[Rfam]
RNA sequence: UCAGGUCUUCAGCAGAAGCAGGGCAGUUCUCCCAGUGGUUUUCCUUGACUAUGAGGAACUGGCCUGCCGCUUUGCUGGGGAGUGA
Numbered sequence: 001u002c003a004g005g006u007c008u009u010c011a012g013c014a015g016a017a018g019c020a021g022g023g024c025a026g027u028u029c030u031c032c033c034a035g036u037g038g039u040u041u042u043c044c045u046u047g048a049c050u051a052u053g054a055g056g057a058a059c060u061g062g063c064c065u066g067c068c069g070c071u072u073u074g075c076u077g078g079g080g081a082g083u084g085a
Stems, first nucleotide, its partner, number of pairs: 001085003006080003011076006018070002021067001022064003026059005033053002037049001
Rfam assigns this 85-nucleotide RNA sequence from Sapajus apella to the family "mir-298 microRNA precursor family". A reference for the family is Chiang et al. (2010), "Mammalian microRNAs: experimental evaluation of novel and previously annotated genes", Genes Dev.